RNA sequence: ACAGAAGAUAGAGGUGGGUCAAACAAGAGUAACUAAGCUGAGGUUGGGAGAUACCUGUGAUGCUUAGAGAAAGGGGAUGGCUCCGAAGGGUGGAUUUCUCUCAAAUUCAUGCCUGGUUCCCGGAUUAAGAGUUCUGGAACUGUCACCGUUUAUCGGUGAAGAGCUAUCGUUUUA
Numbered sequence: 001a002c003a004g005a006a007g008a009u010a011g012a013g014g015u016g017g018g019u020c021a022a023a024c025a026a027g028a029g030u031a032a033c034u035a036a037g038c039u040g041a042g043g044u045u046g047g048g049a050g051a052u053a054c055c056u057g058u059g060a061u062g063c064u065u066a067g068a069g070a071a072a073g074g075g076g077a078u079g080g081c082u083c084c085g086a087a088g089g090g091u092g093g094a095u096u097u098c099u100c101u102c103a104a105a106u107u108c109a110u111g112c113c114u115g116g117u118u119c120c121c122g123g124a125u126u127a128a129g130a131g132u133u134c135u136g137g138a139a140c141u142g143u144c145a146c147c148g149u150u151u152a153u154c155g156g157u158g159a160a161g162a163g164c165u166a167u168c169g170u171u172u173u174a
Stems, first nucleotide, its partner, number of pairs: 007168005016083006024075001033067006087114003090110008115141006122134004143159006
Lysine riboswitch aptamer: a 174-nucleotide RNA sequence from Desulfosporosinus orientis. Riboswitches are metabolite binding domains within certain messenger RNAs that serve as precision sensors for their corresponding targets. Rfam links the family to the GO term lysine biosynthetic process. Lineage of the source: Bacteria > Bacillati > Eubacteriales > Desulfosporosinus > Desulfosporosinus orientis. The match comes from Rfam's covariance-model search (104 bits).